[Rfam]
RNA sequence: GGGGGCGUACUUGGUUUCGACGGGGGUAAGAGGUAUCUAGGAAGCGAGUCGAGGGAACCUGUGGACCCGCGUUAAAAAACUAUAGGAUUAAAUAUAAACGCUAAAAACGAUAAUUUAGCUUUAGCAGCUUAGUCUGCUAACGUCAGACCGGUAGUACCGCGGACCGGAGCCUGGCGCCGACAGCGGUGAAACGAGCCUGUGUAAGCUUUGCCACAGGAACGGGAUUUAUGAAGCUACUGAAACCAAAAGCCUGUCCUUAGGCGUUUGGUAGAGGGAAUGUAAAACUAAGGACUGCACUCGGAGAUGCUUAGGUAUGUCUGCUUUCGGACAGGGGUUCGACACCCCUCGCCUCCACCA
Numbered sequence: 001g002g003g004g005g006c007g008u009a010c011u012u013g014g015u016u017u018c019g020a021c022g023g024g025g026g027u028a029a030g031a032g033g034u035a036u037c038u039a040g041g042a043a044g045c046g047a048g049u050c051g052a053g054g055g056a057a058c059c060u061g062u063g064g065a066c067c068c069g070c071g072u073u074a075a076a077a078a079a080c081u082a083u084a085g086g087a088u089u090a091a092a093u094a095u096a097a098a099c100g101c102u103a104a105a106a107a108c109g110a111u112a113a114u115u116u117a118g119c120u121u122u123a124g125c126a127g128c129u130u131a132g133u134c135u136g137c138u139a140a141c142g143u144c145a146g147a148c149c150g151g152u153a154g155u156a157c158c159g160c161g162g163a164c165c166g167g168a169g170c171c172u173g174g175c176g177c178c179g180a181c182a183g184c185g186g187u188g189a190a191a192c193g194a195g196c197c198u199g200u201g202u203a204a205g206c207u208u209u210g211c212c213a214c215a216g217g218a219a220c221g222g223g224a225u226u227u228a229u230g231a232a233g234c235u236a237c238u239g240a241a242a243c244c245a246a247a248a249g250c251c252u253g254u255c256c257u258u259a260g261g262c263g264u265u266u267g268g269u270a271g272a273g274g275g276a277a278u279g280u281a282a283a284a285c286u287a288a289g290g291a292c293u294g295c296a297c298u299c300g301g302a303g304a305u306g307c308u309u310a311g312g313u314a315u316g317u318c319u320g321c322u323u324u325c326g327g328a329c330a331g332g333g334g335u336u337c338g339a340c341a342c343c344c345c346u347c348g349c350c351u352c353c354a355c356c357a
Base pairs, nucleotide, nucleotide: 001353002352003351004350005349006348007347021326022325023324024323025322026321027320028319030317033315034314035313036312037311038310039309040308041307043305045300046299047298048297049296050071051070053068054067058086059085060084061083062082063081121140122139123138124137125136126135127134141176142175143174144173145172146171148167149166150165151164152163155189158186160185161184196223197222198221199220200219210234211233214230237274238273242269243268244267245266246265249262250261251260253292254291255290256289330346331345332344333343334342
transfer-messenger RNA: a 357-nucleotide RNA sequence from Clostridiales bacterium oral taxon 876. It is annotated as a non-coding RNA gene. It scores 178 bits against the family's covariance model. Its Rfam clan is "tRNA clan". The family's consensus secondary structure is taken from published work.